[Rfam]
The family of this 71-nucleotide RNA sequence is "mir-199 microRNA precursor family". This family consists of the microRNA (miRNA) precursor mir-199 which appears to be specific to humans. Animal miRNAs are transcribed as ~70nt precursors and subsequently processed by the Dicer enzyme to give a ~22nt product. In this case the mature sequence comes from the 3' arm of the precursor. The extents of the hairpin precursors are not generally known and are estimated based on hairpin prediction. Pairs were carried over by alignment from the consensus structure, which was predicted with RNAalifold. The family has 83 seed sequences and 1,828 matches in Rfam 15.1. The literature on the family includes a 2002 paper in Genes Dev by Mourelatos et al., "miRNPs: a novel class of ribonucleoproteins containing numerous microRNAs". Rfam links the family to the GO terms miRNA-mediated post-transcriptional gene silencing and RISC complex.
RNA sequence: GCCCAGUGUUCAGACUACCUGUUCAGGACUACGAGAUUGUACAGUAGUCUGCACAUUGGUUAGGCUGUGCU
Numbered sequence: 001g002c003c004c005a006g007u008g009u010u011c012a013g014a015c016u017a018c019c020u021g022u023u024c025a026g027g028a029c030u031a032c033g034a035g036a037u038u039g040u041a042c043a044g045u046a047g048u049c050u051g052c053a054c055a056u057u058g059g060u061u062a063g064g065c066u067g068u069g070c071u
Base pairs, nucleotide, nucleotide: 003059004058005057006056007055008054009053011051012050013049014048015047016046017045019044020043021042022041024039025038